RNA: Group II catalytic intron D1-D4-1
Organism: Paraflavisolibacter caeni
RNA sequence: CUAUUUCGUGCAGUAAUGCAUGAAAGGAAGUCAGCAGAGGUCAUAGUAGCUGUGGUAACGAGCCGUUGGAAGGAACGGAGGUCUCACCAAGCAGUGAAGGAC
Numbered sequence: 001c002u003a004u005u006u007c008g009u010g011c012a013g014u015a016a017u018g019c020a021u022g023a024a025a026g027g028a029a030g031u032c033a034g035c036a037g038a039g040g041u042c043a044u045a046g047u048a049g050c051u052g053u054g055g056u057a058a059c060g061a062g063c064c065g066u067u068g069g070a071a072g073g074a075a076c077g078g079a080g081g082u083c084u085c086a087c088c089a090a091g092c093a094g095u096g097a098a099g100g101a102c
Stems, first nucleotide, its partner, number of pairs: 001026002005024008031038002040102003049095005